[Rfam]
RNA: U5 spliceosomal RNA
Organism: Schistosoma bovis
RNA sequence: AAGUUAGGAUGUCUCCUCAUUUGCGGAUAAAUCUUUCGCUUUUUACUAAACAUUUCCGUGGGGAGGCACAAUACAGUGAGUCUUAACUCAUUUUUUCCAACUCCGUCUUUGCACGGAGU
Numbered sequence: 001a002a003g004u005u006a007g008g009a010u011g012u013c014u015c016c017u018c019a020u021u022u023g024c025g026g027a028u029a030a031a032u033c034u035u036u037c038g039c040u041u042u043u044u045a046c047u048a049a050a051c052a053u054u055u056c057c058g059u060g061g062g063g064a065g066g067c068a069c070a071a072u073a074c075a076g077u078g079a080g081u082c083u084u085a086a087c088u089c090a091u092u093u094u095u096u097c098c099a100a101c102u103c104c105g106u107c108u109u110u111g112c113a114c115g116g117a118g119u
Stems, first nucleotide, its partner, number of pairs: 003081003010068010029055004034050003099119001101118006